[Rfam]
RNA sequence: GAGCGUGACACGGGGUGCCAGGCCACAAGGGCCGGCUGAGACAAUACCCGUUGAACCUGCCCGGCUAGCACCGGCGAAGGGAUGUCCCAUGAGCGCCAC
Numbered sequence: 001g002a003g004c005g006u007g008a009c010a011c012g013g014g015g016u017g018c019c020a021g022g023c024c025a026c027a028a029g030g031g032c033c034g035g036c037u038g039a040g041a042c043a044a045u046a047c048c049c050g051u052u053g054a055a056c057c058u059g060c061c062c063g064g065c066u067a068g069c070a071c072c073g074g075c076g077a078a079g080g081g082a083u084g085u086c087c088c089a090u091g092a093g094c095g096c097c098a099c
Base pairs, nucleotide, nucleotide: 007086008085009084010083011050012049013048014047016044017036018035019034021032056080057079058078061074062073063072064071
RNA: TPP riboswitch aptamer (THI element)